[Rfam]
RNA sequence: CACCGAGUCCGCGGCUCCGGUGAUCACCGGAGCCUGGUGCGAAAGGGA
Numbered sequence: 001c002a003c004c005g006a007g008u009c010c011g012c013g014g015c016u017c018c019g020g021u022g023a024u025c026a027c028c029g030g031a032g033c034c035u036g037g038u039g040c041g042a043a044a045g046g047g048a
Stems, first nucleotide, its partner, number of pairs: 013034008